[Rfam]
RNA: ASpks TB sRNA
Organism: Streptomyces sp. Amel2xC10
RNA sequence: CUUGAGCGAGCCCAGCCACAACGGCCUUUCGGGGUCGGGCCGUUGUCCGUAGACGGCGAUCAGGGCCUCGGCCUC
Dot-bracket structure: ..............(((.....))).........(((...(..(..(((....)))..).....)...)))....